[Rfam]
The family of this 74-nucleotide RNA from Mizuhopecten yessoensis is "mir-34 microRNA precursor family".
The family is grouped with related families in Rfam's "mir-34 clan".
Rfam describes the family as follows. Human mir-34a was discovered computationally and later experimentally verified. The mature sequence is excised from the 5' arm of the hairpin.
On this family, see Houbaviy et al., Dev Cell 2003: "Embryonic stem cell-specific MicroRNAs".
NCBI's taxonomy places the organism under Eukaryota, Protostomia, Bivalvia, Pectinidae, Mizuhopecten.
RNA sequence: GUUUUUGUGGCAGUGUGGUUAGCUGGUUGUCAUGGUAACAAUGGAACAACCACUAUUCGCACUCCCGUGAAACC
Numbered sequence: 001g002u003u004u005u006u007g008u009g010g011c012a013g014u015g016u017g018g019u020u021a022g023c024u025g026g027u028u029g030u031c032a033u034g035g036u037a038a039c040a041a042u043g044g045a046a047c048a049a050c051c052a053c054u055a056u057u058c059g060c061a062c063u064c065c066c067g068u069g070a071a072a073c074c
Stems, first nucleotide, its partner, number of pairs: 003072004009066002012063007020055003024052007